Shown here is a 99-nucleotide RNA from Marinobacter antarcticus, a member of the family "Glycine riboswitch aptamer". About the family: This family represents the bacterial glycine riboswitch. The match comes from Rfam's covariance-model search (63 bits).
[Rfam]
Nucleotides: 099
Base pairs, nucleotide, nucleotide: 006094007093008092009091010090011089012088013087020044021043022042046079047078048077049075050074053073054072055071059066
Number, partner (000 for none) and nucleotide at each position: 001000g002000a003000c004000g005000u006094g007093u008092u009091a010090g011089c012088g013087g014000g015000a016000g017000a018000g019000a020044u021043c022042g023000u024000a025000u026000c027000g028000c029000a030000c031000a032000a033000c034000u035000g036000u037000g038000u039000g040000a041000u042022c043021g044020g045000c046079g047078c048077c049075g050074a051000a052000g053073g054072a055071g056000c057000a058000a059066c060000u061000g062000c063000c064000c065000c066059g067000g068000a069000a070000a071055c072054u073053c074050u075049c076000a077048g078047g079046c080000a081000a082000a083000a084000g085000g086000a087013c088012c089011g090010u091009u092008a093007a094006c095000a096000u097000g098000a099000c